Rfam assigns this 85-nucleotide RNA sequence from Chiloscyllium punctatum to the family "Selenocysteine transfer RNA". Gene Ontology term of the family: triplet codon-amino acid adaptor activity. The organism belongs to Chiloscyllium, within Eukaryota. The base pairs follow the family's consensus structure, which is taken from published work.

[Rfam]
RNA sequence: GCCCAGAUGACCCUCAGUGGUCUGGGAUGCAGGUUUCAAACCUGGAACUGUCUAGCAACAGAUGGUUCAAUUCCACCUUUCGGGU
Numbered sequence: 001g002c003c004c005a006g007a008u009g010a011c012c013c014u015c016a017g018u019g020g021u022c023u024g025g026g027a028u029g030c031a032g033g034u035u036u037c038a039a040a041c042c043u044g045g046a047a048c049u050g051u052c053u054a055g056c057a058a059c060a061g062a063u064g065g066u067u068c069a070a071u072u073c074c075a076c077c078u079u080u081c082g083g084g085u
Stems, first nucleotide, its partner, number of pairs: 001085004006080002009077001013026005028046001030044004048061004063075003